RNA sequence: UCUGAUUCAGGGCAAAGUCGCCGAAAGGUGACGGCGCAAAACUAGAGGGGCUACAGCGAUAAUACGCCAAGCCAGCCAGUUGCCGGA
Numbered sequence: 001u002c003u004g005a006u007u008c009a010g011g012g013c014a015a016a017g018u019c020g021c022c023g024a025a026a027g028g029u030g031a032c033g034g035c036g037c038a039a040a041a042c043u044a045g046a047g048g049g050g051c052u053a054c055a056g057c058g059a060u061a062a063u064a065c066g067c068c069a070a071g072c073c074a075g076c077c078a079g080u081u082g083c084c085g086g087a
Stems, first nucleotide, its partner, number of pairs: 012037002017032006040081004047077002049073003056067003
RNA: c-di-GMP-I riboswitch aptamer